[Rfam]
RNA sequence: UGGUAGAUGCACCCUGAUUUCCGCCUCUGAUUCAUGCCUAGUGAAUCGGAGGCUUUUUAU
Numbered sequence: 001u002g003g004u005a006g007a008u009g010c011a012c013c014c015u016g017a018u019u020u021c022c023g024c025c026u027c028u029g030a031u032u033c034a035u036g037c038c039u040a041g042u043g044a045a046u047c048g049g050a051g052g053c054u055u056u057u058u059a060u
Base pairs, nucleotide, nucleotide: 002013003012004011024052025051026050027049028048029047030046031045032044033043034042
The family of this 60-nucleotide RNA sequence from Romeriopsis navalis is "Nitrogen stress-induced RNA 1". The base pairs follow the family's consensus structure. On this family, see Ionescu et al., J Mol Biol 2010: "Heterocyst-specific transcription of NsiR1, a non-coding RNA encoded in a tandem array of direct repeats in cyanobacteria".